[Rfam]
RNA sequence: AGGGGGGGACGACCCCCCUCCUUGCCCCACUGCAGAGGGAGACGACCCCC
Numbered sequence: 001a002g003g004g005g006g007g008g009a010c011g012a013c014c015c016c017c018c019u020c021c022u023u024g025c026c027c028c029a030c031u032g033c034a035g036a037g038g039g040a041g042a043c044g045a046c047c048c049c050c
Stems, first nucleotide, its partner, number of pairs: 002019007037050003041046001